[Rfam]
RNA sequence: ACUUGUCACGGGUGCCUGUGCGCACCCGCGGCAUCAGACACACACGCCGUGCCACGGGAAGAACAUGGCACUUCAGCGCGUU
Numbered sequence: 001a002c003u004u005g006u007c008a009c010g011g012g013u014g015c016c017u018g019u020g021c022g023c024a025c026c027c028g029c030g031g032c033a034u035c036a037g038a039c040a041c042a043c044a045c046g047c048c049g050u051g052c053c054a055c056g057g058g059a060a061g062a063a064c065a066u067g068g069c070a071c072u073u074c075a076g077c078g079c080g081u082u
Stems, first nucleotide, its partner, number of pairs: 004033004009028007049071006056064001
Dot-bracket structure: ...((((.(((((((......))))))).))))...............((((((.(.......).))))))...........
The family of this 82-nucleotide RNA sequence from Streptomyces scopuliridis is "nrdJ RNA". It scores 73 bits against the family's covariance model.